mir-8364 microRNA precursor family: a 61-nucleotide sequence from Pristionchus pacificus. Rfam links the family to the GO terms RISC complex and miRNA-mediated post-transcriptional gene silencing. The match comes from Rfam's covariance-model search (71 bits). The base pairs follow the family's consensus structure, which was predicted with RNAalifold.
[Rfam]
RNA sequence: UCUUCAUUUCUCGUAUUCUCUCGCCAGUCAGAGAGGCUAGAUAGUGUGGGAAAUGAAGAGA
Numbered sequence: 001u002c003u004u005c006a007u008u009u010c011u012c013g014u015a016u017u018c019u020c021u022c023g024c025c026a027g028u029c030a031g032a033g034a035g036g037c038u039a040g041a042u043a044g045u046g047u048g049g050g051a052a053a054u055g056a057a058g059a060g061a
Stems, first nucleotide, its partner, number of pairs: 001059007010050001012048006019041003
The source organism's lineage runs through Eukaryota, Protostomia, Ecdysozoa, Chromadorea and Pristionchus.